The record is a 61-nucleotide sequence from Caenorhabditis elegans, which matches "mir-2208 microRNA precursor family" in Rfam. The base pairs follow the family's consensus structure, which was predicted with RNAalifold. Lineage of the source: Eukaryota > Metazoa > Protostomia > Nematoda > Caenorhabditis. Rfam's curators put it in the seed alignment. Gene Ontology terms of the family: RISC complex and miRNA-mediated post-transcriptional gene silencing.
RNA sequence: AAGUGUACCCGAAUCUGAUAUCCUAUCAUCUGAAAAAGGAUGCAGUUUCUGGUAUACUUCA
Numbered sequence: 001a002a003g004u005g006u007a008c009c010c011g012a013a014u015c016u017g018a019u020a021u022c023c024u025a026u027c028a029u030c031u032g033a034a035a036a037a038g039g040a041u042g043c044a045g046u047u048u049c050u051g052g053u054a055u056a057c058u059u060c061a
Stems, first nucleotide, its partner, number of pairs: 001059009011049003015045003019042006